This 105-nucleotide sequence from Sarcophilus harrisii belongs to the Rfam family "Small nucleolar RNA SNORD124". Rfam links the family to the GO terms RNA processing and nucleolus. Taxonomically the source falls in Sarcophilus (Eukaryota, Metazoa, Craniata, Dipnotetrapodomorpha). The base pairs follow the family's consensus structure, which was predicted with WAR. A search with the family's covariance model found it, with a score of 89 bits. Rfam 15.1 lists 191 matches to the family in 183 species. For this family Rfam cites "snoSeeker: an advanced computational package for screening of guide and orphan snoRNA genes in the human genome" (Yang et al., Nucleic Acids Res, 2006).

RNA sequence: GUAAUUCAAGGGAGGAAUGAUGCUCCAAGUGAAACCUCAAGAAAAGGAGCCUGAGUCCCAGGCCUGUGAUGGAGCCCUUCUCUUCCUGACCUUCCUUGAGCUGAA
Numbered sequence: 001g002u003a004a005u006u007c008a009a010g011g012g013a014g015g016a017a018u019g020a021u022g023c024u025c026c027a028a029g030u031g032a033a034a035c036c037u038c039a040a041g042a043a044a045a046g047g048a049g050c051c052u053g054a055g056u057c058c059c060a061g062g063c064c065u066g067u068g069a070u071g072g073a074g075c076c077c078u079u080c081u082c083u084u085c086c087u088g089a090c091c092u093u094c095c096u097u098g099a100g101c102u103g104a105a
Stems, first nucleotide, its partner, number of pairs: 009096007
Notes
Rfam classes the family as a C/D-box small nucleolar RNA.